[Rfam]
RNA: FMN riboswitch aptamer (RFN element)
RNA sequence: CGACGUCUUCAGGGCGGGGUGGAAUUCCCCACCGGCGGUAGGCGCGGCAUUCGAUUCGGAUGCCGUGCGAGCCCGCGAGCGCUUCCCGGCAUGUUCGAUGCAAGCCGGGAAGGUCAGCAGAUCCGGUCGAAUGCCGGAGCCGACGGUCCAGCCUGUUUUCGACGAACCGGUUCCGGUUCGCCGGAACGGCCCACAGUCCGGAUGAAAGAAGACGGCA
Numbered sequence: 001c002g003a004c005g006u007c008u009u010c011a012g013g014g015c016g017g018g019g020u021g022g023a024a025u026u027c028c029c030c031a032c033c034g035g036c037g038g039u040a041g042g043c044g045c046g047g048c049a050u051u052c053g054a055u056u057c058g059g060a061u062g063c064c065g066u067g068c069g070a071g072c073c074c075g076c077g078a079g080c081g082c083u084u085c086c087c088g089g090c091a092u093g094u095u096c097g098a099u100g101c102a103a104g105c106c107g108g109g110a111a112g113g114u115c116a117g118c119a120g121a122u123c124c125g126g127u128c129g130a131a132u133g134c135c136g137g138a139g140c141c142g143a144c145g146g147u148c149c150a151g152c153c154u155g156u157u158u159u160c161g162a163c164g165a166a167c168c169g170g171u172u173c174c175g176g177u178u179c180g181c182c183g184g185a186a187c188g189g190c191c192c193a194c195a196g197u198c199c200g201g202a203u204g205a206a207a208g209a210a211g212a213c214g215g216c217a
Stems, first nucleotide, its partner, number of pairs: 004214007017029003033142002035076004071140002079118002122138005144200003